The record is a 77-nucleotide RNA from Chlorogloea sp. CCALA 695, which matches "Glutamine riboswitch aptamer (glnA leader)" in Rfam. A reference for the family is Ames and Breaker (2011), "Bacterial aptamers that selectively bind glutamine", RNA Biol. The match comes from Rfam's covariance-model search (56 bits). The family's consensus secondary structure is taken from published work. Its family is annotated with glutamine binding in the Gene Ontology.

Nucleotides: 077
Stems, first nucleotide, its partner, number of pairs: 003073005009045005048074001054064003
Number, partner (000 for none) and nucleotide at each position: 001000u002000u003073c004072g005071u006070u007069c008000a009045u010044c011043u012042u013041c014000u015000a016000u017000u018000u019000a020000a021000a022000a023000a024000a025000c026000u027000u028000u029000u030000u031000a032000c033000a034000u035000u036000a037000a038000g039000g040000a041013g042012a043011a044010g045009a046000c047000g048074g049000a050000a051000g052000u053000a054064a055063g056062g057000u058000u059000a060000a061000u062056c063055c064054u065000g066000a067000a068000g069007g070006a071005a072004c073003g074048c075000g076000c077000c